[Rfam]
This 100-nucleotide RNA from Phyllostomus discolor belongs to the Rfam family "Small nucleolar RNA SNORD23". NCBI's taxonomy places the organism under Eukaryota, Metazoa, Sarcopterygii, Laurasiatheria, Phyllostomus. It scores 100 bits against the family's covariance model. The pairing is the family consensus, mapped onto this sequence. It is annotated as a C/D-box small nucleolar RNA. Gene Ontology terms of the family: RNA processing and nucleolus. Rfam 15.1 lists 153 matches to the family in 134 species.
RNA sequence: UGCCCAGUGAUGACACCCAUCCUUGCUCCCCAUGCCCCCAGGGGCUGUGGGCGACACCAUAGCUGCCCCAGGCUAGGCUGAGGCCUGGGGUCUGAGGGCA
Numbered sequence: 001u002g003c004c005c006a007g008u009g010a011u012g013a014c015a016c017c018c019a020u021c022c023u024u025g026c027u028c029c030c031c032a033u034g035c036c037c038c039c040a041g042g043g044g045c046u047g048u049g050g051g052c053g054a055c056a057c058c059a060u061a062g063c064u065g066c067c068c069c070a071g072g073c074u075a076g077g078c079u080g081a082g083g084c085c086u087g088g089g090g091u092c093u094g095a096g097g098g099c100a
Stems, first nucleotide, its partner, number of pairs: 001100005